[Rfam]
Nucleotides: 062
Stems, first nucleotide, its partner, number of pairs: 006058003010054003018044009
Number, partner (000 for none) and nucleotide at each position: 001000g002000g003000u004000a005000u006058u007057g008056u009000u010054u011053u012052u013000a014000a015000c016000c017000c018044c019043a020042c021041g022040a023039u024038a025037a026036g027000c028000c029000c030000c031000g032000g033000a034000a035000a036026c037025u038024u039023a040022u041021u042020g043019u044018g045000a046000u047000g048000a049000a050000a051000u052012a053011a054010a055000u056008a057007c058006a059000a060000g061000a062000g